Rfam assigns this 153-nucleotide sequence to the family "IMES-5 RNA".

RNA sequence: CAUAUUUCGGAAAGAACUGGACCUCGAGACCCAGAUCAGGAAGAAAAUGGACAGAAGAAGAAGGGUGAGAAAGUUAAUUUAUAUUAACAAAAUGUGAGCUGAAAUGGGUAUCGGCCACACAGUGAGAAACCCGCACUGGACCCUUCAACUUCG
Numbered sequence: 001c002a003u004a005u006u007u008c009g010g011a012a013a014g015a016a017c018u019g020g021a022c023c024u025c026g027a028g029a030c031c032c033a034g035a036u037c038a039g040g041a042a043g044a045a046a047a048u049g050g051a052c053a054g055a056a057g058a059a060g061a062a063g064g065g066u067g068a069g070a071a072a073g074u075u076a077a078u079u080u081a082u083a084u085u086a087a088c089a090a091a092a093u094g095u096g097a098g099c100u101g102a103a104a105u106g107g108g109u110a111u112c113g114g115c116c117a118c119a120c121a122g123u124g125a126g127a128a129a130c131c132c133g134c135a136c137u138g139g140a141c142c143c144u145u146c147a148a149c150u151u152c153g
Base pairs, nucleotide, nucleotide: 001049002048003047005046006045007044008043015036017034018033019032020031054152055151056150057149060146061145062144063143064142065141074087075086076085077084078083093119094118095117096116098115099114100113101112102111120138121137122136123135124134